The record is an 82-nucleotide RNA sequence from Rhizobium sp. Leaf306, which matches "tRNA" in Rfam.
Lineage of the source: Bacteria > Alphaproteobacteria > Hyphomicrobiales > Rhizobiaceae > Rhizobium.
RNA sequence: GGAGAGAUGCCCGAGUGGUUAAAGGGGACGGACUGUAAAUCCGUUGGCUACGCCUACGUUGGUUCAAAUCCAACUCUCUCCA
Numbered sequence: 001g002g003a004g005a006g007a008u009g010c011c012c013g014a015g016u017g018g019u020u021a022a023a024g025g026g027g028a029c030g031g032a033c034u035g036u037a038a039a040u041c042c043g044u045u046g047g048c049u050a051c052g053c054c055u056a057c058g059u060u061g062g063u064u065c066a067a068a069u070c071c072a073a074c075u076c077u078c079u080c081c082a
Stems, first nucleotide, its partner, number of pairs: 001081007010026003028044005058074005